Source information: Rfam assigns this 66-nucleotide RNA from Apolygus lucorum to the family "mir-71 microRNA precursor family". Its family is annotated with miRNA-mediated post-transcriptional gene silencing and RISC complex in the Gene Ontology. The source organism's lineage runs through Eukaryota, Pancrustacea, Altocrustacea, Neoheteroptera and Apolygus. The base pairs follow the family's consensus structure, which was predicted with RNAalifold.
[Rfam]
RNA sequence: ACUACAUGAAAGACAAGGUAGUGAGAUGAGGUAUGACAUCUCACUACCCAUGUCUUUCACACAGUA
Numbered sequence: 001a002c003u004a005c006a007u008g009a010a011a012g013a014c015a016a017g018g019u020a021g022u023g024a025g026a027u028g029a030g031g032u033a034u035g036a037c038a039u040c041u042c043a044c045u046a047c048c049c050a051u052g053u054c055u056u057u058c059a060c061a062c063a064g065u066a
Base pairs, nucleotide, nucleotide: 008058009057010056011055012054013053014052015051017048018047020045021044022043023042024041025040026039027038028037